[Rfam]
RNA sequence: UGCCAAAAUUUUCCUCGGCAGUUAACUGCAGCCGGUUCUUUAAAAUUUCGAUAGUUAACUGUCGAAGGAUAU
Numbered sequence: 001u002g003c004c005a006a007a008a009u010u011u012u013c014c015u016c017g018g019c020a021g022u023u024a025a026c027u028g029c030a031g032c033c034g035g036u037u038c039u040u041u042a043a044a045a046u047u048u049c050g051a052u053a054g055u056u057a058a059c060u061g062u063c064g065a066a067g068g069a070u071a072u
Stems, first nucleotide, its partner, number of pairs: 012068002015065014

A member of the RNA family "MIR2629 microRNA precursor family" from Medicago truncatula, 72 nucleotides long. The family's consensus secondary structure was predicted with RNAalifold. The match comes from Rfam's covariance-model search (65 bits). Gene Ontology terms of the family: RISC complex and miRNA-mediated post-transcriptional gene silencing.